[Rfam]
RNA: Glycine riboswitch aptamer
Organism: Arthrobacter ulcerisalmonis
RNA sequence: UGAUCUGUGGCGGGAGAGUCCUGCUUUUGGUUUGCAGGCGCCGUAGGAGCAAAUCCUCCCCAGGAAUCUCUCAGGCCCAUGUACCGCCACGCGGAG
Dot-bracket structure: .....((((((((......((((...........)))).((((...(((....(.......).....))).).))).......)))))))).....